[Rfam]
RNA sequence: AGAUGAGAGAAACACCCGCCCGCAGGGGACUGCGGACGGCGCCCGGUCGGCGCCUGCCCGGCUUCGACCUGGCCGUGCCUCGCGCACACCCACCGGGGACCCUGGCACUGGACACCCCGGGACGCCUCACCGAUCGGC
Number, nucleotide and partner (000 for none) at each position: 001a000002g000003a000004u129005g128006a127007g126008a000009g125010a000011a000012a000013c000014a000015c000016c039017c038018g037019c000020c035021c034022g033023c032024a031025g030026g000027g000028g000029a000030c025031u024032g023033c022034g021035g020036a000037c018038g017039g016040c000041g073042c072043c071044c000045g069046g068047u000048c066049g065050g064051c000052g062053c061054c000055u000056g000057c000058c000059c000060g000061g053062c052063u000064u050065c049066g048067a000068c046069c045070u000071g043072g042073c041074c000075g087076u086077g085078c084079c000080u000081c000082g000083c000084g078085c077086a076087c075088a000089c000090c000091c000092a000093c120094c119095g118096g117097g116098g115099a000100c000101c000102c000103u000104g000105g000106c000107a000108c000109u000110g000111g000112a000113c000114a000115c098116c097117c096118c095119g094120g093121g000122a000123c000124g000125c009126c007127u006128c005129a004130c137131c136132g000133a000134u000135c000136g131137g130138c000